[Rfam]
RNA sequence: GGGGACCUACGGGGCCCUCAAACCAACGGACCGACAGGUUCAAAGCAACGGAAGACAGAAA
Numbered sequence: 001g002g003g004g005a006c007c008u009a010c011g012g013g014g015c016c017c018u019c020a021a022a023c024c025a026a027c028g029g030a031c032c033g034a035c036a037g038g039u040u041c042a043a044a045g046c047a048a049c050g051g052a053a054g055a056c057a058g059a060a061a
Stems, first nucleotide, its partner, number of pairs: 001018004006014003028041005
RNA: L2-Alphaproteobacteria ribosomal protein leader
Organism: Albidovulum aquaemixtae